RNA sequence: GGUUCAUGAUGACACAGGACCUUGUCUGAACAUAAUGAUUUCAAAAUUUGAGCUUAAAAAUGACACUCUGAAAUC
Numbered sequence: 001g002g003u004u005c006a007u008g009a010u011g012a013c014a015c016a017g018g019a020c021c022u023u024g025u026c027u028g029a030a031c032a033u034a035a036u037g038a039u040u041u042c043a044a045a046a047u048u049u050g051a052g053c054u055u056a057a058a059a060a061u062g063a064c065a066c067u068c069u070g071a072a073a074u075c
Base pairs, nucleotide, nucleotide: 001075002074003073004072
Dot-bracket structure: ((((...................................................................))))
Background:
Rfam assigns this 75-nucleotide RNA to the family "Small nucleolar RNA SNORD107". The family's consensus secondary structure was predicted with WAR. Rfam 15.1 lists 144 matches to the family in 129 species. On this family, see Runte et al., Hum Mol Genet 2001: "The IC-SNURF-SNRPN transcript serves as a host for multiple small nucleolar RNA species and as an antisense RNA for UBE3A".